This 109-nucleotide sequence from Bacillaceae bacterium SAS-127 belongs to the Rfam family "Manganese Mn2+ riboswitch aptamer (yybP-ykoY)".
Rfam 15.1 lists 1,126 matches to the family in 1,062 species.
A search with the family's covariance model found it, with a score of 62 bits.
Rfam's curators write: This RNA was originally discovered in E. coli during a large scale screen and was named SraF. The family was later found to exist upstream of related families of protein genes in many bacteria, including the the yybP and ykoK genes in B. subtilis. The specific functions of these proteins are unknown, but this structured RNA element may be involved in their genetic regulation as a riboswitch.
[Rfam]
RNA sequence: ACGUUAGUCAAAGGGGAGUAGCCGUUAGGUAGUUAACUACCUAGAACAAAGUCGUCAUUUCAUGGAUUAUUAUCCAUCGGCUUUGUUGGCAUGAUGGAAGAUCAUGCUC
Numbered sequence: 001a002c003g004u005u006a007g008u009c010a011a012a013g014g015g016g017a018g019u020a021g022c023c024g025u026u027a028g029g030u031a032g033u034u035a036a037c038u039a040c041c042u043a044g045a046a047c048a049a050a051g052u053c054g055u056c057a058u059u060u061c062a063u064g065g066a067u068u069a070u071u072a073u074c075c076a077u078c079g080g081c082u083u084u085g086u087u088g089g090c091a092u093g094a095u096g097g098a099a100g101a102u103c104a105u106g107c108u109c
Base pairs, nucleotide, nucleotide: 026043027042028041045087046086047085048084049083050082051081052080053079054078062077063076064075065074066073088108089107090106091105092104093103094102